[Rfam]
The family of this 94-nucleotide RNA sequence from Actinokineospora bangkokensis is "ZMP/ZTP riboswitch aptamer (pfl RNA motif)".
The family's consensus secondary structure is taken from published work.
Lineage of the source: Bacteria > Bacillati > Actinomycetota > Pseudonocardiales > Actinokineospora.
It scores 55 bits against the family's covariance model.
Gene Ontology terms of the family: regulation of purine nucleotide biosynthetic process and one-carbon metabolic process.

RNA sequence: GGCCUGGGCCGUGACUGGCGUGCACGAGGGUGGAAGCGACCACCGGGGAGCGGCCCGGGGCGCAGCCACGACACCGAACGCCUGGGUGUCCCGC
Numbered sequence: 001g002g003c004c005u006g007g008g009c010c011g012u013g014a015c016u017g018g019c020g021u022g023c024a025c026g027a028g029g030g031u032g033g034a035a036g037c038g039a040c041c042a043c044c045g046g047g048g049a050g051c052g053g054c055c056c057g058g059g060g061c062g063c064a065g066c067c068a069c070g071a072c073a074c075c076g077a078a079c080g081c082c083u084g085g086g087u088g089u090c091c092c093g094c
Base pairs, nucleotide, nucleotide: 003059004058005057006056007055008054009053010052011051012050015047016046017082018081019080020079021078030043031042032041033040071089072088073087074086075085